[Rfam]
RNA sequence: UGAGGCGCGGGCUUGGGAGAGCCGCAGCGUCGCACAGCAGCCGGGGAUGACCUUUGGGAGAGGGUCUUGUCCGGCUCGGAUCAGGGGAGAUCGUGGCCGAUGGAGAAUGCGUCCCUCAUCGGACUAUCGCGGCAGAUGACGUUGC
Numbered sequence: 001u002g003a004g005g006c007g008c009g010g011g012c013u014u015g016g017g018a019g020a021g022c023c024g025c026a027g028c029g030u031c032g033c034a035c036a037g038c039a040g041c042c043g044g045g046g047a048u049g050a051c052c053u054u055u056g057g058g059a060g061a062g063g064g065u066c067u068u069g070u071c072c073g074g075c076u077c078g079g080a081u082c083a084g085g086g087g088a089g090a091u092c093g094u095g096g097c098c099g100a101u102g103g104a105g106a107a108u109g110c111g112u113c114c115c116u117c118a119u120c121g122g123a124c125u126a127u128c129g130c131g132g133c134a135g136a137u138g139a140c141g142u143u144g145c
Stems, first nucleotide, its partner, number of pairs: 001034002004031005010023005039076006051064005097122005103117003